The record is a 103-nucleotide RNA from Priestia veravalensis, which matches "TPP riboswitch aptamer (THI element)" in Rfam. Lineage of the source: Bacteria > Bacillati > Bacilli > Caryophanales > Priestia. Vitamin B(1) in its active form thiamin pyrophosphate (TPP) is an essential coenzyme that is synthesised by coupling of pyrimidine and thiazole moieties in bacteria.
RNA sequence: UCAAACCACUAGGGGUGCUUUUCAAAGCUGAGAGAGACGCUUGUCUUAACCCUUAUAACCUGAACUAGGUAAUACUAGCGUAGGAAAGAGGUAUUGUGUGCUA
Numbered sequence: 001u002c003a004a005a006c007c008a009c010u011a012g013g014g015g016u017g018c019u020u021u022u023c024a025a026a027g028c029u030g031a032g033a034g035a036g037a038c039g040c041u042u043g044u045c046u047u048a049a050c051c052c053u054u055a056u057a058a059c060c061u062g063a064a065c066u067a068g069g070u071a072a073u074a075c076u077a078g079c080g081u082a083g084g085a086a087a088g089a090g091g092u093a094u095u096g097u098g099u100g101c102u103a
Stems, first nucleotide, its partner, number of pairs: 006091002009088002011053004017028004035046004059084004065078004
Dot-bracket structure: .....((.((((((..((((....))))......((((....))))...)))).....((((..((((......))))..))))..)).))............